[Rfam]
RNA sequence: GGGCUGGUUAAGGGAGCCGGUGUUCCCCGCGGACUGCAAACCCGUAGAAGGUCUUGAUAGGAUCUUGGUCGGUUCAACUCCGAACCCAGCCU
Numbered sequence: 001g002g003g004c005u006g007g008u009u010a011a012g013g014g015a016g017c018c019g020g021u022g023u024u025c026c027c028c029g030c031g032g033a034c035u036g037c038a039a040a041c042c043c044g045u046a047g048a049a050g051g052u053c054u055u056g057a058u059a060g061g062a063u064c065u066u067g068g069u070c071g072g073u074u075c076a077a078c079u080c081c082g083a084a085c086c087c088a089g090c091c092u
Stems, first nucleotide, its partner, number of pairs: 001092007009084001012027006029045004048066005069083004
The record is a 92-nucleotide RNA from Desulfopila aestuarii, which matches "Selenocysteine transfer RNA" in Rfam.
The base pairs follow the family's consensus structure, which is taken from published work.
The family has 109 seed sequences and 4,211 matches in Rfam 15.1.